[Rfam]
RNA sequence: UUUUAAGGAACGAAGCCUAAAGGGCGCCACAUCGUGUGGCAACGCCUUGGUGAUCAACAUCCUUUCACCGUCGC
Dot-bracket structure: ..........(.(((.(........(((((.....)))))...).))).)....(.((...........)).).
RNA: Bacillaceae-1 RNA